[Rfam]
RNA: MIR396 microRNA precursor family
RNA sequence: CUUUGUAUUCUUCCACGGCUUUCUUGAACUGCAUCAUCUUCUUCUCUCUCGCAGAAGGGAAAAAAAAGGUAUUUUUUUUUCUUGCUCUGAAUUUCAAUGGCUGCAGUUCAAUAAAGCUGUGGGAAGAUACAAUAA
Numbered sequence: 001c002u003u004u005g006u007a008u009u010c011u012u013c014c015a016c017g018g019c020u021u022u023c024u025u026g027a028a029c030u031g032c033a034u035c036a037u038c039u040u041c042u043u044c045u046c047u048c049u050c051g052c053a054g055a056a057g058g059g060a061a062a063a064a065a066a067a068g069g070u071a072u073u074u075u076u077u078u079u080u081c082u083u084g085c086u087c088u089g090a091a092u093u094u095c096a097a098u099g100g101c102u103g104c105a106g107u108u109c110a111a112u113a114a115a116g117c118u119g120u121g122g123g124a125a126g127a128u129a130c131a132a133u134a135a
Base pairs, nucleotide, nucleotide: 003132004131005130006129007128013122014121015120017118018117019116020115021114022113024111025110026109027108029106030105031104032103033102